[Rfam]
RNA: Small nucleolar RNA SNORA84
RNA sequence: GCCCUGUGGUUACUGGAAACUGUUGUGUUGGUACAGUGCUCCAGUUAGUAGAAAUGGGCCAAAAGUAAUACUGUGGUUUAUGCAUGGAGUCUGUGAUACCUUAGCAGCCUCCAUAGCCCGGUUACAGUUACAUUU
Numbered sequence: 001g002c003c004c005u006g007u008g009g010u011u012a013c014u015g016g017a018a019a020c021u022g023u024u025g026u027g028u029u030g031g032u033a034c035a036g037u038g039c040u041c042c043a044g045u046u047a048g049u050a051g052a053a054a055u056g057g058g059c060c061a062a063a064a065g066u067a068a069u070a071c072u073g074u075g076g077u078u079u080a081u082g083c084a085u086g087g088a089g090u091c092u093g094u095g096a097u098a099c100c101u102u103a104g105c106a107g108c109c110u111c112c113a114u115a116g117c118c119c120g121g122u123u124a125c126a127g128u129u130a131c132a133u134u135u
Base pairs, nucleotide, nucleotide: 001059002058003057004056007050008049010047012045013044014043015042016041017040019037020036021035022034023033071127073125074124075123076122077121078120082117083116084114085113086112087111089109091107092106093105094104